A member of the RNA family "MIR390 microRNA precursor family" from Macleaya cordata, 138 nucleotides long.
For this family Rfam cites "ASRP: the Arabidopsis Small RNA Project Database" (Gustafson et al., Nucleic Acids Res, 2005).
NCBI's taxonomy places the organism under Eukaryota, Viridiplantae, Streptophytina, Magnoliopsida, Macleaya.
Its family is annotated with miRNA-mediated post-transcriptional gene silencing and RISC complex in the Gene Ontology.
Pairs were carried over by alignment from the consensus structure, which was predicted with WAR.

[Rfam]
RNA sequence: CAGAAGAAUCUGUGAAGCUCAGGAGGGAUAGCGCCAUGGAUCUCUCUCUCUCUCUCUCUCUCUCUCUAGGCGCAAGCGUGUGUGUGAGUUGAGCAUGAUCAAUAGCGCUAUCCAUCCUGAGCUUCAUCGGAUCUUCUU
Numbered sequence: 001c002a003g004a005a006g007a008a009u010c011u012g013u014g015a016a017g018c019u020c021a022g023g024a025g026g027g028a029u030a031g032c033g034c035c036a037u038g039g040a041u042c043u044c045u046c047u048c049u050c051u052c053u054c055u056c057u058c059u060c061u062c063u064c065u066c067u068a069g070g071c072g073c074a075a076g077c078g079u080g081u082g083u084g085u086g087a088g089u090u091g092a093g094c095a096u097g098a099u100c101a102a103u104a105g106c107g108c109u110a111u112c113c114a115u116c117c118u119g120a121g122c123u124u125c126a127u128c129g130g131a132u133c134u135u136c137u138u
Stems, first nucleotide, its partner, number of pairs: 010129001016123009026113009